[Rfam]
RNA sequence: CCGCCCGGCAGAUGAGAUGCCCACUCCCUUCCGUGGUGGUGCCAGCUACGCUGACGACGUGCGCCUUCUGCCGGAAGGCGUAAAGCCGACAGCCGUCGCAACCCCGGGAGCACUUCCAUG
Numbered sequence: 001c002c003g004c005c006c007g008g009c010a011g012a013u014g015a016g017a018u019g020c021c022c023a024c025u026c027c028c029u030u031c032c033g034u035g036g037u038g039g040u041g042c043c044a045g046c047u048a049c050g051c052u053g054a055c056g057a058c059g060u061g062c063g064c065c066u067u068c069u070g071c072c073g074g075a076a077g078g079c080g081u082a083a084a085g086c087c088g089a090c091a092g093c094c095g096u097c098g099c100a101a102c103c104c105c106g107g108g109a110g111c112a113c114u115u116c117c118a119u120g
Base pairs, nucleotide, nucleotide: 060082061081062080063079065077066076067075068074085099086098088097089096090095
Rfam assigns this 120-nucleotide RNA from Streptomyces netropsis to the family "Streptomyces-metH RNA". NCBI's taxonomy places the organism under Bacteria, Bacillati, Kitasatosporales, Streptomycetaceae, Streptomyces. By type it is a small RNA.